[Rfam]
The record is a 109-nucleotide RNA from Sorghum bicolor, which matches "MIR5565 microRNA precursor family" in Rfam. Rfam links the family to the GO terms RISC complex and miRNA-mediated post-transcriptional gene silencing. Taxonomically the source falls in Sorghum (Eukaryota, Viridiplantae, Embryophyta, Poaceae).
RNA sequence: GUUGUCGGAUUCACUUCAAUCCAUGUGUGUUGGUGUGGAUUGGGGUGGAAUUUAGUUCAAGUUCCACUCCAAUCCACCUCAACACAUGUGAAUUGAUGUGAAUCCGACU
Number, nucleotide and partner (000 for none) at each position: 001g000002u000003u000004g108005u107006c106007g105008g104009a103010u102011u101012c100013a099014c098015u000016u096017c095018a094019a093020u092021c000022c090023a089024u088025g087026u086027g085028u084029g083030u082031u081032g080033g000034u000035g077036u076037g075038g074039a073040u072041u071042g070043g069044g000045g067046u066047g065048g000049a000050a000051u000052u000053u000054a000055g000056u000057u000058c000059a000060a000061g000062u000063u000064c000065c047066a046067c045068u000069c043070c042071a041072a040073u039074c038075c037076a036077c035078c000079u000080c032081a031082a030083c029084a028085c027086a026087u025088g024089u023090g022091a000092a020093u019094u018095g017096a016097u000098g014099u013100g012101a011102a010103u009104c008105c007106g006107a005108c004109u000